Shown here is a 78-nucleotide RNA from Schistosoma japonicum, a member of the family "mir-3492 microRNA precursor family". Gene Ontology terms of the family: RISC complex and miRNA-mediated post-transcriptional gene silencing. Lineage of the source: Eukaryota > Bilateria > Rhabditophora > Schistosomatoidea > Schistosoma.
RNA sequence: GGUUUUCUUAAUCCAUGCUUGGAUUUCAUCCGAUACCGACCCAUCAGGGAUGAUGAGACUUCCGAGAUAGGUGAAGCG
Numbered sequence: 001g002g003u004u005u006u007c008u009u010a011a012u013c014c015a016u017g018c019u020u021g022g023a024u025u026u027c028a029u030c031c032g033a034u035a036c037c038g039a040c041c042c043a044u045c046a047g048g049g050a051u052g053a054u055g056a057g058a059c060u061u062c063c064g065a066g067a068u069a070g071g072u073g074a075a076g077c078g
Stems, first nucleotide, its partner, number of pairs: 002077005008071002011068003016064002021060002024058007